Description
HNH endonuclease-associated RNA and ORF (HEARO) RNA: a 235-nucleotide sequence from Coleofasciculus chthonoplastes.
[Rfam]
RNA sequence: GUCAGGAACCCCACCGCUAUAAGCCGGGGGCUUGAAUAAAGCCCGUACCUGACCAGCCUAAGUGCCUAACGCACUACGUUAACGGCAAGAGUUAAAGUUCCUACCUUGGGAUGCGUGCGCGUAGCGCGUAAGCCAGUCCCAUGCUCUAGAACCAAGUGGUUAAACAGGUUUACAAGGGUUAAGCCAGUGCUGCUUGGAAAGUACCGACCGUUAACUUAUGCGAGGCUAACGUCAC
Numbered sequence: 001g002u003c004a005g006g007a008a009c010c011c012c013a014c015c016g017c018u019a020u021a022a023g024c025c026g027g028g029g030g031c032u033u034g035a036a037u038a039a040a041g042c043c044c045g046u047a048c049c050u051g052a053c054c055a056g057c058c059u060a061a062g063u064g065c066c067u068a069a070c071g072c073a074c075u076a077c078g079u080u081a082a083c084g085g086c087a088a089g090a091g092u093u094a095a096a097g098u099u100c101c102u103a104c105c106u107u108g109g110g111a112u113g114c115g116u117g118c119g120c121g122u123a124g125c126g127c128g129u130a131a132g133c134c135a136g137u138c139c140c141a142u143g144c145u146c147u148a149g150a151a152c153c154a155a156g157u158g159g160u161u162a163a164a165c166a167g168g169u170u171u172a173c174a175a176g177g178g179u180u181a182a183g184c185c186a187g188u189g190c191u192g193c194u195u196g197g198a199a200a201g202u203a204c205c206g207a208c209c210g211u212u213a214a215c216u217u218a219u220g221c222g223a224g225g226c227u228a229a230c231g232u233c234a235c
Base pairs, nucleotide, nucleotide: 001053002052003051004050005049006048008046010030011029014026031041032040033039056221057220059218060217061075062074063073064072065071078215079214080213081212082211083210091208092207093206099150100149105143107141108140109139110138111137112136131227132226133225134224152197153196154195155194156193157192158191159190160189164188165187167185168184170183171182172179